RNA sequence: ACUAUCUUUUUCUUGGGGUUGCACUACUGUCCAGUGAGCAUGUAGUGAAGCCAGUACUACUAACGCCUAAGUAACACACUCCUAUCAACUAGAGCUCUGCUUUACUUUGGUGCAAAUUUUUUGCGGG
Dot-bracket structure: .....((((.....))))..(.(..((((.(......((.....))...).))))..).)......................(((((..((((((...))))))...)))))...............
RNA: U4atac minor spliceosomal RNA
Organism: Myotis lucifugus